[Rfam]
This 61-nucleotide RNA sequence from Mycobacterium talmoniae belongs to the Rfam family "Fluoride riboswitch aptamer (crcB RNA motif)". NCBI's taxonomy places the organism under Bacteria, Bacillati, Actinomycetota, Actinomycetes, Mycobacterium. The family's consensus secondary structure is taken from published work.

RNA sequence: UCGAGGUCAGGCGAUGGAGUUCGCCUCAACUGCCACACCGGCUGAUGGCUUCUACGACGUG
Number, nucleotide and partner (000 for none) at each position: 001u000002c000003g000004a000005g000006g000007u000008c000009a000010g025011g024012c023013g022014a000015u000016g052017g051018a050019g049020u048021u047022c013023g012024c011025c010026u000027c000028a000029a000030c000031u000032g042033c041034c040035a000036c000037a000038c000039c000040g034041g033042c032043u000044g000045a000046u000047g021048g020049c019050u018051u017052c016053u000054a000055c000056g000057a000058c000059g000060u000061g000